[Rfam]
RNA sequence: AACUUUAUUAUAAUAGUAAUUAAAUUUAGUACGAGAGGAACCGUUUAUUUAAAUAAUUGGUUUUUGCGGUUGUCCGACUAGGUAAUACCGUAAUACUACUAUUUAUUAGAUAAUAGUUAAACGCCUUUAAAUUAGAAUCUAUAUUAGAAUAUAAUAAUAUUUCUAAUAUAUUAUAAAUAUAUAAGAAUAGGCUCCGGCCUUGUAUUUUAGUAAGCGAUUCUUCUAUUAGCUUUAAAGUAACUAGCGGUAAUUUAUAUAUUAUAAUUUUAAUAUAUAUUAGAUUAAAUUCUUUAUAAACGAUUUAAAUAUGCGAAAGGGUCCUAUAAAUAGUAAAGUAGCUUUAUUAUUACAAUUUACUAAGGGUAAACCUUCCUUCGUUUAAAUUUCU
Number, nucleotide and partner (000 for none) at each position: 001a000002a000003c000004u000005u157006u156007a155008u154009u153010a152011u151012a000013a000014u146015a145016g144017u143018a000019a049020u000021u047022a046023a045024a044025u043026u000027u000028a000029g000030u000031a000032c000033g000034a000035g000036a000037g000038g000039a000040a000041c000042c000043g025044u024045u023046u022047a021048u000049u019050u105051a104052a103053a102054u101055a000056a000057u000058u098059g097060g096061u000062u000063u000064u000065u092066g091067c090068g089069g088070u085071u084072g083073u082074c081075c000076g000077a000078c000079u000080a000081g074082g073083u072084a071085a070086u000087a000088c069089c068090g067091u066092a065093a000094u000095a000096c060097u059098a058099c000100u000101a054102u053103u052104u051105a050106u000107u141108a140109g139110a000111u000112a000113a000114u134115a133116g132117u131118u130119a000120a000121a000122c000123g000124c000125c000126u000127u000128u000129a000130a118131a117132u116133u115134a114135g000136a000137a000138u000139c109140u108141a107142u000143a017144u016145u015146a014147g000148a000149a000150u000151a011152u010153a009154a008155u007156a006157a005158u000159a000160u000161u000162u000163c280164u279165a278166a277167u276168a275169u274170a000171u000172u000173a000174u000175a000176a000177a000178u000179a000180u000181a000182u000183a000184a000185g000186a000187a000188u000189a000190g000191g000192c000193u000194c000195c000196g000197g000198c000199c000200u000201u000202g000203u000204a000205u000206u000207u000208u000209a000210g000211u000212a000213a000214g000215c000216g000217a000218u000219u000220c000221u000222u000223c000224u000225a000226u000227u000228a000229g000230c000231u000232u000233u000234a000235a000236a000237g000238u000239a000240a000241c000242u000243a000244g000245c000246g000247g000248u000249a000250a000251u000252u000253u000254a000255u000256a000257u000258a000259u000260u000261a000262u000263a000264a000265u000266u000267u000268u000269a000270a000271u000272a000273u000274a169275u168276a167277u166278u165279a164280g163281a000282u000283u000284a386285a385286a384287u383288u382289c000290u304291u000292u000293a301294u000295a000296a000297a000298c000299g000300a000301u293302u000303u000304a290305a000306a000307u000308a000309u000310g378311c377312g376313a375314a374315a000316g370317g369318g368319u000320c363321c362322u000323a000324u000325a000326a000327a000328u356329a355330g354331u000332a353333a000334a000335g350336u349337a348338g347339c000340u000341u000342u000343a000344u000345u000346a000347u338348u337349a336350c335351a000352a000353u332354u330355u329356a328357c000358u000359a000360a000361g000362g321363g320364u000365a000366a000367a000368c318369c317370u316371u000372c000373c000374u314375u313376c312377g311378u310379u000380u000381a000382a288383a287384u286385u285386u284387c000388u000
A member of the RNA family "Eukaryotic large subunit ribosomal RNA" from Neurospora crassa, 388 nucleotides of a longer RNA. It is one of the family's seed sequences. The literature on the family includes a 2001 paper in Science by Yusupov et al., "Crystal structure of the ribosome at 5.5 A resolution". Taxonomically the source falls in Neurospora crassa (Eukaryota, Fungi, Sordariales, Neurospora).